[Rfam]
RNA sequence: CUGCAGCCGGCGCAGCCUGAAAGGGGAGGUCGGACACCGAUAAGCCGGCAGUGCGGUGAUACGGAAAAACACCGGCAGGC
Numbered sequence: 001c002u003g004c005a006g007c008c009g010g011c012g013c014a015g016c017c018u019g020a021a022a023g024g025g026g027a028g029g030u031c032g033g034a035c036a037c038c039g040a041u042a043a044g045c046c047g048g049c050a051g052u053g054c055g056g057u058g059a060u061a062c063g064g065a066a067a068a069a070c071a072c073c074g075g076c077a078g079g080c
Base pairs, nucleotide, nucleotide: 001015002014003013004012007033008032009031010030011029016024017023018022035058036057037056038055039054044076045075046074047073048072

The family of this 80-nucleotide RNA from Pseudomonas panipatensis is "Proteo-phage-1 RNA". Taxonomically the source falls in Pseudomonas (Bacteria, Pseudomonadota, Pseudomonadales, Pseudomonadaceae).